This 114-nucleotide sequence from Dromaius novaehollandiae belongs to the Rfam family "Potassium channel RNA editing signal". Taxonomically the source falls in Dromaius (Eukaryota, Opisthokonta, Sarcopterygii, Palaeognathae). Its family is annotated with adenosine to inosine editing in the Gene Ontology. On this family, see Bhalla et al., Nat Struct Mol Biol 2004: "Control of human potassium channel inactivation by editing of a small mRNA hairpin". A search with the family's covariance model found it, with a score of 109 bits. Rfam classes the family as a cis-regulatory element.
[Rfam]
RNA sequence: GUGGGCUAUGGGGACAUGCGGCCUGUCACUGUGGGGGGCAAGAUCGUAGGUUCCUUGUGUGCCAUUGCUGGAGUGCUCACCAUCGCCCUACCUGUCCCUGUCAUUGUAUCCAAC
Numbered sequence: 001g002u003g004g005g006c007u008a009u010g011g012g013g014a015c016a017u018g019c020g021g022c023c024u025g026u027c028a029c030u031g032u033g034g035g036g037g038g039c040a041a042g043a044u045c046g047u048a049g050g051u052u053c054c055u056u057g058u059g060u061g062c063c064a065u066u067g068c069u070g071g072a073g074u075g076c077u078c079a080c081c082a083u084c085g086c087c088c089u090a091c092c093u094g095u096c097c098c099u100g101u102c103a104u105u106g107u108a109u110c111c112a113a114c
Stems, first nucleotide, its partner, number of pairs: 001114002004111002007108005013102004018097001021095002037077004049063003